[Rfam]
RNA sequence: UUUAACCUAAACGACGUUAGCCCUACCUCUCAAACGUCCUUACGGCUCCGAAGCCGAUCCAGUUGUGAAUAGUUGUAUCUAAAAAACA
Number, nucleotide and partner (000 for none) at each position: 001u000002u000003u000004a000005a000006c000007c000008u000009a000010a000011a000012c000013g000014a000015c000016g000017u000018u000019a000020g000021c000022c000023c000024u000025a000026c000027c000028u000029c000030u000031c000032a000033a000034a000035c067036g066037u000038c000039c062040u061041u000042a000043c056044g055045g054046c053047u052048c000049c000050g000051a000052a047053g046054c045055c044056g043057a000058u000059c000060c000061a040062g039063u000064u000065g000066u036067g035068a000069a000070u000071a000072g000073u000074u000075g000076u000077a000078u000079c000080u000081a000082a000083a000084a000085a000086a000087c000088a000

Source information
This 88-nucleotide sequence from Bacillus sp. cl95 belongs to the Rfam family "BsrC". It is annotated as a small RNA. Rfam's curators write: The 301 nucleotide sequence from Kouji Nakamura has been trimmed to a highly conserved ~85 nucleotide long core to form this family. It scores 67 bits against the family's covariance model.